The record is a 67-nucleotide RNA from Psychrobacillus psychrotolerans, which matches "Bacillaceae-1 RNA" in Rfam. Rfam classes the family as a small RNA.
[Rfam]
Nucleotides: 067
Base pairs, nucleotide, nucleotide: 011049013047014046015045016044017043025039026038028036029035053067054066055065056064057063
Number, partner (000 for none) and nucleotide at each position: 001000a002000g003000g004000u005000g006000g007000g008000g009000u010000u011049c012000a013047a014046a015045g016044g017043c018000u019000a020000a021000g022000a023000g024000c025039g026038c027000g028036a029035c030000a031000u032000c033000g034000u035029g036028u037000g038026g039025c040000a041000a042000u043017g044016c045015c046014u047013u048000c049011g050000u051000g052000a053067c054066c055065a056064a057063c058000a059000u060000c061000u062000u063057g064056u065055u066054g067053g

The match comes from Rfam's covariance-model search (53 bits).